Shown here is a 132-nucleotide sequence from Sitta europaea, a member of the family "MIR480 microRNA precursor family". The match comes from Rfam's covariance-model search (37 bits). On this family, see Lu et al., Plant Cell 2005: "Novel and mechanical stress-responsive MicroRNAs in Populus trichocarpa that are absent from Arabidopsis". NCBI's taxonomy places the organism under Eukaryota, Opisthokonta, Sarcopterygii, Sauropsida, Sitta.

RNA sequence: UAAUCAAUAUGGAAGAACUUUGUACUUUAUAACUCAUACAUACUUAAUUGCAAGUAUAAUAUGUCAGAGCAAAGUCCAGCAGAUUAAACACAGUGAAAAAUAAGGAAUAGGCAAUUUUCCUGCUGUUUGAGA
Numbered sequence: 001u002a003a004u005c006a007a008u009a010u011g012g013a014a015g016a017a018c019u020u021u022g023u024a025c026u027u028u029a030u031a032a033c034u035c036a037u038a039c040a041u042a043c044u045u046a047a048u049u050g051c052a053a054g055u056a057u058a059a060u061a062u063g064u065c066a067g068a069g070c071a072a073a074g075u076c077c078a079g080c081a082g083a084u085u086a087a088a089c090a091c092a093g094u095g096a097a098a099a100a101u102a103a104g105g106a107a108u109a110g111g112c113a114a115u116u117u118u119c120c121u122g123c124u125g126u127u128u129g130a131g132a
Stems, first nucleotide, its partner, number of pairs: 004130004008125002012121001016117002021113003027107002